[Rfam]
RNA sequence: GAAGCAGGGAUUGUGUGUAUCGGCGUUGUGCUACAAUUGAUGCGCGAUGUUGCCGAAAGAGUUCCCUGCAAUAAUGAUGGAGGGGAAGGUGGGCAGUUGGGUUUCAUCUCUACCAUUGAAAUUCUCAACAAUCAUCUUCCCCACAUCU
Numbered sequence: 001g002a003a004g005c006a007g008g009g010a011u012u013g014u015g016u017g018u019a020u021c022g023g024c025g026u027u028g029u030g031c032u033a034c035a036a037u038u039g040a041u042g043c044g045c046g047a048u049g050u051u052g053c054c055g056a057a058a059g060a061g062u063u064c065c066c067u068g069c070a071a072u073a074a075u076g077a078u079g080g081a082g083g084g085g086a087a088g089g090u091g092g093g094c095a096g097u098u099g100g101g102u103u104u105c106a107u108c109u110c111u112a113c114c115a116u117u118g119a120a121a122u123u124c125u126c127a128a129c130a131a132u133c134a135u136c137u138u139c140c141c142c143a144c145a146u147c148u
Stems, first nucleotide, its partner, number of pairs: 004069007015045006082142011096129004